A member of the RNA family "t44 RNA" from Shewanella sp. HN-41, 95 nucleotides long.
Taxonomically the source falls in Shewanella (Bacteria, Pseudomonadati, Pseudomonadota, Gammaproteobacteria).
This family consists of a number of bacterial RNA genes of between 135 and 170 bases in length. The t44 gene has been identified in several species of enteric bacteria but homologs have also been identified in Pseudomonas and Coxiella species. The t44 gene is found between the map and rpsB genes in all species in the full alignment apart from Shigella flexneri.
[Rfam]
RNA sequence: CUAAAUACUAAAUCACACACGUGUCGACACAUUCUUCGGGGUGCCCUCAGUUAUUCACUGCGGGGUCGAAGACAUGGGAUACGUGGAGGUCUAAC
Numbered sequence: 001c002u003a004a005a006u007a008c009u010a011a012a013u014c015a016c017a018c019a020c021g022u023g024u025c026g027a028c029a030c031a032u033u034c035u036u037c038g039g040g041g042u043g044c045c046c047u048c049a050g051u052u053a054u055u056c057a058c059u060g061c062g063g064g065g066u067c068g069a070a071g072a073c074a075u076g077g078g079a080u081a082c083g084u085g086g087a088g089g090u091c092u093a094a095c
Stems, first nucleotide, its partner, number of pairs: 018085008030076003035070004043066005
Dot-bracket structure: .................((((((((....(((..((((....(((((..............)))))))))...))).))))))))..........
It is annotated as a small RNA.